[Rfam]
RNA sequence: UUGAGUGUGAAUUGAUUUAUCUUUGGAUAAACUAAUGUAAAAGUGCUUCUUAUGAGUUGAUGUUGUUUGGAUAG
Numbered sequence: 001u002u003g004a005g006u007g008u009g010a011a012u013u014g015a016u017u018u019a020u021c022u023u024u025g026g027a028u029a030a031a032c033u034a035a036u037g038u039a040a041a042a043g044u045g046c047u048u049c050u051u052a053u054g055a056g057u058u059g060a061u062g063u064u065g066u067u068u069g070g071a072u073a074g
Base pairs, nucleotide, nucleotide: 011061012060013059014058015057016056017055018054022052025049026048027047031044032043033042
Source information: The record is a 74-nucleotide sequence from Trifolium pratense, which matches "MIR5272 microRNA precursor family" in Rfam. Pairs were carried over by alignment from the consensus structure, which was predicted with RNAalifold. Gene Ontology terms of the family: miRNA-mediated post-transcriptional gene silencing and RISC complex. The source organism's lineage runs through Eukaryota, Tracheophyta, Spermatophyta, Pentapetalae and Trifolium. A search with the family's covariance model found it, with a score of 67 bits.